[Rfam]
A member of the RNA family "SL2 RNA" from Caenorhabditis briggsae, 110 nucleotides long. Rfam classes the family as a non-coding RNA gene. The match comes from Rfam's covariance-model search (92 bits). This family represents SL2 RNA. SL2 RNA is involved in trans splicing in lower eukaryotes. Trans-splicing is a form of RNA processing. The acquisition of a spliced leader from a SL RNA is a intra-molecular reaction which precisely joins exons derived from separately transcribed RNAs. Approximately 25% of C. elegans genes are organised into polycistronic transcription units and the presence of SL2 on an mRNA is an indication the the gene is in an operon.

RNA sequence: GGUUUUAACCCAGUUACUCAAGGUACGCUGGAGUUCCGACCUUUCGCAAGAAAGUGUUGAACAAAUCAUAAUUUUUGGAACGCUCUGCUGGGGUUAUCCGGCAGGGCAAA
Numbered sequence: 001g002g003u004u005u006u007a008a009c010c011c012a013g014u015u016a017c018u019c020a021a022g023g024u025a026c027g028c029u030g031g032a033g034u035u036c037c038g039a040c041c042u043u044u045c046g047c048a049a050g051a052a053a054g055u056g057u058u059g060a061a062c063a064a065a066u067c068a069u070a071a072u073u074u075u076u077g078g079a080a081c082g083c084u085c086u087g088c089u090g091g092g093g094u095u096a097u098c099c100g101g102c103a104g105g106g107c108a109a110a
Stems, first nucleotide, its partner, number of pairs: 007035002009031002013028002015025003037059004041054005084108001086106001088104003092099002